RNA sequence: AGGCCUGAAAUGAUGGUGUGAAUUCAUGUCUCUUCUCUGAGGUAUAUUGUGGAGAGAGCUAAAAGCAUUUCUGAUCAGGCUU
Numbered sequence: 001a002g003g004c005c006u007g008a009a010a011u012g013a014u015g016g017u018g019u020g021a022a023u024u025c026a027u028g029u030c031u032c033u034u035c036u037c038u039g040a041g042g043u044a045u046a047u048u049g050u051g052g053a054g055a056g057a058g059c060u061a062a063a064a065g066c067a068u069u070u071c072u073g074a075u076c077a078g079g080c081u082u
Base pairs, nucleotide, nucleotide: 001082002081003080004079005078

Rfam assigns this 82-nucleotide sequence from Nothoprocta perdicaria to the family "Small nucleolar RNA SNORD111". It scores 54 bits against the family's covariance model. On this family, see Galardi et al., Mol Cell Biol 2002: "Purified box C/D snoRNPs are able to reproduce site-specific 2'-O-methylation of target RNA in vitro". The source organism's lineage runs through Eukaryota, Opisthokonta, Craniata, Coelurosauria and Nothoprocta. Rfam 15.1 lists 894 matches to the family in 541 species. Rfam classes the family as a C/D-box small nucleolar RNA.